[Rfam]
The record is a 180-nucleotide RNA from Secundilactobacillus malefermentans, which matches "Lysine riboswitch aptamer" in Rfam. NCBI's taxonomy places the organism under Bacteria, Bacilli, Lactobacillales, Lactobacillaceae, Secundilactobacillus. It scores 86 bits against the family's covariance model. The base pairs follow the family's consensus structure, which is taken from published work.
RNA sequence: UUAUAUCGAAGAGGUUGCAACCAACAUGAGUCACUGAUUGAGUUCCUGCAAGAACGAUGACAUCAGUAAAAGGGGCGGUUGCCGAAGCGCUAAUCAAUGCAGAGGUUAGUUAGCUGGGACGUGGUUUAAGAGAUCACGAACUGUCGCGGGCAUAUGACUCGCGGGGCGCUAUCGACAAAU
Number, nucleotide and partner (000 for none) at each position: 001u000002u000003a000004u000005a000006u175007c174008g173009a172010a170011g169012a000013g000014g000015u000016u000017g082018c081019a080020a079021c078022c077023a000024a000025c074026a000027u000028g000029a000030g000031u000032c000033a067034c066035u065036g064037a063038u062039u000040g061041a000042g000043u000044u000045c000046c000047u000048g000049c000050a000051a000052g000053a000054a000055c000056g000057a000058u000059g000060a000061c040062a038063u037064c036065a035066g034067u033068a000069a000070a000071a000072g000073g000074g025075g000076c000077g022078g021079u020080u019081g018082c017083c000084g000085a000086a115087g114088c113089g110090c109091u108092a107093a106094u105095c104096a000097a000098u000099g000100c000101a000102g000103a000104g095105g094106u093107u092108a091109g090110u089111u000112a000113g088114c087115u086116g142117g141118g000119a000120c138121g137122u136123g135124g134125u133126u132127u000128a000129a000130g000131a000132g126133a125134u124135c123136a122137c121138g120139a000140a000141c117142u116143g000144u164145c163146g162147c161148g160149g159150g158151c000152a000153u000154a000155u000156g000157a000158c150159u149160c148161g147162c146163g145164g144165g000166g000167c000168g000169c011170u010171a000172u009173c008174g007175a006176c000177a000178a000179a000180u000